The family of this 119-nucleotide RNA sequence from Pleurotus ostreatus is "U5 spliceosomal RNA".
U5 RNA is a component of both types of known spliceosome. The precise function of this molecule is unknown, though it is known that the 5' loop is required for splice site selection and p220 binding, and that both the 3' stem-loop and the Sm site are important for Sm protein binding and cap methylation.
Taxonomically the source falls in Pleurotus ostreatus (Eukaryota, Agaricomycotina, Pleurotineae, Pleurotus).
Rfam links the family to the GO terms U5 snRNP and spliceosomal tri-snRNP complex assembly.
The match comes from Rfam's covariance-model search (58 bits).

RNA sequence: GGCGAAGAUGUAUGGAAACAAUCCACCUAGCCCUCGCCUUUUACUAGGGCUAGCCGGUUCUGUGCAUCACUAUACUUCGCUGUCGAAAUCUUUGGAACAAGCGUUCGUUACUGACGCAU
Numbered sequence: 001g002g003c004g005a006a007g008a009u010g011u012a013u014g015g016a017a018a019c020a021a022u023c024c025a026c027c028u029a030g031c032c033c034u035c036g037c038c039u040u041u042u043a044c045u046a047g048g049g050c051u052a053g054c055c056g057g058u059u060c061u062g063u064g065c066a067u068c069a070c071u072a073u074a075c076u077u078c079g080c081u082g083u084c085g086a087a088a089u090c091u092u093u094g095g096a097a098c099a100a101g102c103g104u105u106c107g108u109u110a111c112u113g114a115c116g117c118a119u
Stems, first nucleotide, its partner, number of pairs: 003079004008067010027053008096119001101117005